[Rfam]
RNA sequence: CUGGGGUGCAUUGUAGUUGCAUUGCAUGUUUUGGCAGCACCGUGCAGUGUUUCCACAGUGCAUCCCAG
Numbered sequence: 001c002u003g004g005g006g007u008g009c010a011u012u013g014u015a016g017u018u019g020c021a022u023u024g025c026a027u028g029u030u031u032u033g034g035c036a037g038c039a040c041c042g043u044g045c046a047g048u049g050u051u052u053c054c055a056c057a058g059u060g061c062a063u064c065c066c067a068g
Stems, first nucleotide, its partner, number of pairs: 001068004006064001007062008016053001019050001021048007
RNA: mir-33 microRNA precursor family
Organism: Chrysochloris asiatica